[Rfam]
RNA sequence: GGAGAAUUGGUCUUCCGCAGACGACUGUCAGAAGUAGUUUGCAAAUCACCUUAUGCUGCAAAGAUGGAAACAGCUUUUGUGGUGAACGAUAAGGAAAAACGGAGACAAGAUCUCCGAAGA
Numbered sequence: 001g002g003a004g005a006a007u008u009g010g011u012c013u014u015c016c017g018c019a020g021a022c023g024a025c026u027g028u029c030a031g032a033a034g035u036a037g038u039u040u041g042c043a044a045a046u047c048a049c050c051u052u053a054u055g056c057u058g059c060a061a062a063g064a065u066g067g068a069a070a071c072a073g074c075u076u077u078u079g080u081g082g083u084g085a086a087c088g089a090u091a092a093g094g095a096a097a098a099a100c101g102g103a104g105a106c107a108a109g110a111u112c113u114c115c116g117a118a119g120a
Stems, first nucleotide, its partner, number of pairs: 001015004017042006024035003046120002049094006055083002058080003062076002065073001100116005
RNA: Group II catalytic intron D1-D4-2
Organism: Pseudochryseolinea flava